[Rfam]
RNA sequence: GACCCCAAUGAAGAAAAAUAUGAAAAAAAAAACGUUAAAAGUAGUGAUCUGAUAUACAUUGAUGAGUAUUUCAUUCUGAGGGGUA
Numbered sequence: 001g002a003c004c005c006c007a008a009u010g011a012a013g014a015a016a017a018a019u020a021u022g023a024a025a026a027a028a029a030a031a032a033c034g035u036u037a038a039a040a041g042u043a044g045u046g047a048u049c050u051g052a053u054a055u056a057c058a059u060u061g062a063u064g065a066g067u068a069u070u071u072c073a074u075u076c077u078g079a080g081g082g083g084u085a
Base pairs, nucleotide, nucleotide: 002084003083004082005081006080
Dot-bracket structure: .(((((.........................................................................))))).
Shown here is an 85-nucleotide RNA sequence from Artemisia annua, a member of the family "Small nucleolar RNA R21". Rfam classes the family as a C/D-box small nucleolar RNA. The literature on the family includes a 2001 paper in J Mol Biol by Barneche et al., "Identification of 66 box C/D snoRNAs in Arabidopsis thaliana: extensive gene duplications generated multiple isoforms predicting new ribosomal RNA 2'-O-methylation sites". Pairs were carried over by alignment from the consensus structure, which was predicted with PFOLD.